[Rfam]
RNA sequence: CACGAUAACGGCAAACCUGUCUAAAGACAGGGACGCAAAGCUAAAGGGCCUUACCCGCAGGGGUUGGCAGCCAGCUACCGAAC
Numbered sequence: 001c002a003c004g005a006u007a008a009c010g011g012c013a014a015a016c017c018u019g020u021c022u023a024a025a026g027a028c029a030g031g032g033a034c035g036c037a038a039a040g041c042u043a044a045a046g047g048g049c050c051u052u053a054c055c056c057g058c059a060g061g062g063g064u065u066g067g068c069a070g071c072c073a074g075c076u077a078c079c080g081a082a083c
Base pairs, nucleotide, nucleotide: 003080004079011036012035016031017030018029019028020027021026034070039076040075041074042073046072047071048068049067050066
RNA: c-di-GMP-I-GGC riboswitch aptamer